[Rfam]
Nucleotides: 080
Base pairs, nucleotide, nucleotide: 011031012030013029014028015027016026017025059079060078061077062076063075064074065073066072067071
Number, partner (000 for none) and nucleotide at each position: 001000u002000c003000g004000a005000u006000u007000a008000u009000u010000c011031u012030c013029a014028c015027c016026a017025u018000u019000c020000u021000u022000u023000g024000a025017a026016u027015g028014g029013u030012g031011g032000g033000c034000u035000u036000u037000c038000g039000u040000a041000c042000g043000u044000g045000c046000a047000u048000a049000u050000c051000a052000c053000u054000u055000a056000c057000c058000g059079g060078a061077a062076c063075c064074c065073g066072c067071c068000u069000g070000a071067g072066g073065c074064g075063g076062g077061u078060u079059u080000u